[Rfam]
RNA sequence: CCCCUGCUUUUCCUCCCUGAGCAGGCGCCCGUUGUGACAGCAACGGCGGUUCACCCCGGCCACGCGCCGGGGUUUUCUUU
Numbered sequence: 001c002c003c004c005u006g007c008u009u010u011u012c013c014u015c016c017c018u019g020a021g022c023a024g025g026c027g028c029c030c031g032u033u034g035u036g037a038c039a040g041c042a043a044c045g046g047c048g049g050u051u052c053a054c055c056c057c058g059g060c061c062a063c064g065c066g067c068c069g070g071g072g073u074u075u076u077c078u079u080u
Stems, first nucleotide, its partner, number of pairs: 003025006027047002030045005054072007
Shown here is an 80-nucleotide RNA from Pelomonas sp. Root1444, a member of the family "Burkholderia RNA 7 (anti-hemB)". NCBI's taxonomy places the organism under Bacteria, Pseudomonadati, Burkholderiales, Sphaerotilaceae, Roseateles. Rfam's curators write: This RNA motif was identified by computational search in b-proteobacteria Burkholderia. Co-purified with Hfq, expression confirmed by Northern blot. The family's RNA type in Rfam is small RNA. For this family Rfam cites "Identification of 22 candidate structured RNAs in bacteria using the CMfinder comparative genomics pipeline" (Weinberg et al., Nucleic Acids Res, 2007). A search with the family's covariance model found it, with a score of 62 bits.